[Rfam]
RNA: PreQ1 (pre queuosine) riboswitch aptamer
RNA sequence: ACAGAAGAGGUUCGCGACCAUCCCUCUAUAAAAAACUAGGGACUU
Numbered sequence: 001a002c003a004g005a006a007g008a009g010g011u012u013c014g015c016g017a018c019c020a021u022c023c024c025u026c027u028a029u030a031a032a033a034a035a036c037u038a039g040g041g042a043c044u045u
Stems, first nucleotide, its partner, number of pairs: 006027005016037001